[Rfam]
RNA sequence: CGCGGCGCCCUUUCAGGGCGCCUCCUCCCUGAACCUUGGCCACCGCGUGCAUCGCACGCGGUGGUUUUUUUUGGCUAUU
Numbered sequence: 001c002g003c004g005g006c007g008c009c010c011u012u013u014c015a016g017g018g019c020g021c022c023u024c025c026u027c028c029c030u031g032a033a034c035c036u037u038g039g040c041c042a043c044c045g046c047g048u049g050c051a052u053c054g055c056a057c058g059c060g061g062u063g064g065u066u067u068u069u070u071u072u073g074g075c076u077a078u079u
Stems, first nucleotide, its partner, number of pairs: 007019004040064009
This 79-nucleotide RNA from Sphingomonas sp. HMP6 belongs to the Rfam family "Makes More Granules Regulator RNA (mmgR)". From the family's description: SuhB later renamed mmgR (makes more granules regulator) was a putative non-coding RNA found multiple times in the Agrobacterium tumefaciens genome and related alpha-proteobacteria. Other non-coding RNAs uncovered in the same analysis include: speF, ybhL, metA, and serC.Several studies inSinorhizobium meliloti showed that suhB element is indeed a non-coding RNA:firstly it was detected on Northern blot and called Sm8RNA, secondly in an RNAseq study referred to as SmelC689.The mutant phenotype's (strain lacking the small RNA) cytoplasm contains higher content of polyhydroxybutyrate (PBH)storage granules than wild type strain. The sRNA is required to limit the PBH intracellular accumulation when the nitrogen-fixing Sinorhizobium meliloti is under condition of surplus carbon in relation to nitrogen. It has been renamed to mmgR. Further study confirmed that mmgR fine-tunes the regulation of PBH storage.Northern blot confirmed the expression of the sRNA in other rhizobia species. The source organism's lineage runs through Bacteria, Pseudomonadota, Alphaproteobacteria, Sphingomonadaceae and Sphingomonas.